[Rfam]
This 50-nucleotide sequence from Knoellia locipacati belongs to the Rfam family "Guanidine-II riboswitch aptamer (mini-ykkC)". Gene Ontology term of the family: regulation of gene expression. The base pairs follow the family's consensus structure, which is taken from published work. Taxonomically the source falls in Knoellia (Bacteria, Actinomycetes, Micrococcales, Intrasporangiaceae).
RNA sequence: CCGCGAGGACGACCUCACCGCCGACGUUGACUGCGCGCAGGAUGACCUGC
Numbered sequence: 001c002c003g004c005g006a007g008g009a010c011g012a013c014c015u016c017a018c019c020g021c022c023g024a025c026g027u028u029g030a031c032u033g034c035g036c037g038c039a040g041g042a043u044g045a046c047c048u049g050c
Stems, first nucleotide, its partner, number of pairs: 001020001003018001005016004037050005